[Rfam]
RNA sequence: CGGGGAUUUCGCAGACUCCCCGCCCAAGACGCUGCAAGCGUCCAAGUUCUGC
Numbered sequence: 001c002g003g004g005g006a007u008u009u010c011g012c013a014g015a016c017u018c019c020c021c022g023c024c025c026a027a028g029a030c031g032c033u034g035c036a037a038g039c040g041u042c043c044a045a046g047u048u049c050u051g052c
Stems, first nucleotide, its partner, number of pairs: 001022006011052005028042005

Shown here is a 52-nucleotide RNA sequence, a member of the family "chrB-b RNA". The family's consensus secondary structure is taken from published work.